[Rfam]
RNA sequence: GCCCCCGUGGCCCAAAUGGAUAGAGGCAAGCGACUUAAAAUCGCUGAGAUCAGGGUUCGAGUCCCUGCGGGGGCA
Dot-bracket structure: (((((((..(((............))).(((((.......))))).....(((((.......)))))))))))).